[Rfam]
RNA sequence: AAAAAUAAAUAAUUGUUCGCUUAUAUAAGUCCUAUGAUAUGGUUAGGAUGUCUCUACUGAGCUACCGUAAAUUGCUCUACGCUAUAAGUAUCUAUCAUUAUUUU
Numbered sequence: 001a002a003a004a005a006u007a008a009a010u011a012a013u014u015g016u017u018c019g020c021u022u023a024u025a026u027a028a029g030u031c032c033u034a035u036g037a038u039a040u041g042g043u044u045a046g047g048a049u050g051u052c053u054c055u056a057c058u059g060a061g062c063u064a065c066c067g068u069a070a071a072u073u074g075c076u077c078u079a080c081g082c083u084a085u086a087a088g089u090a091u092c093u094a095u096c097a098u099u100a101u102u103u104u
Stems, first nucleotide, its partner, number of pairs: 019089007029049006059077004064072001